[Rfam]
Annotation: This 123-nucleotide sequence belongs to the Rfam family "Hepatitis C virus J7880 RNA".
RNA sequence: GUUAAGGCUAAGGCGUCAACAGUGAAGGCUAAACUGCUAUCUGUAGAGGAAGCUUGUAGCCUGACGCCCCCCCAUUCAGCCAGAUCUAAAUUUGGCUACGGGGCAAAGGACGUCCGAAGCCAC
Numbered sequence: 001g002u003u004a005a006g007g008c009u010a011a012g013g014c015g016u017c018a019a020c021a022g023u024g025a026a027g028g029c030u031a032a033a034c035u036g037c038u039a040u041c042u043g044u045a046g047a048g049g050a051a052g053c054u055u056g057u058a059g060c061c062u063g064a065c066g067c068c069c070c071c072c073c074a075u076u077c078a079g080c081c082a083g084a085u086c087u088a089a090a091u092u093u094g095g096c097u098a099c100g101g102g103g104c105a106a107a108g109g110a111c112g113u114c115c116g117a118a119g120c121c122a123c
Stems, first nucleotide, its partner, number of pairs: 006120001009117001012114006022065002025062001028057002035050001037048002068103004074097001076095002078092002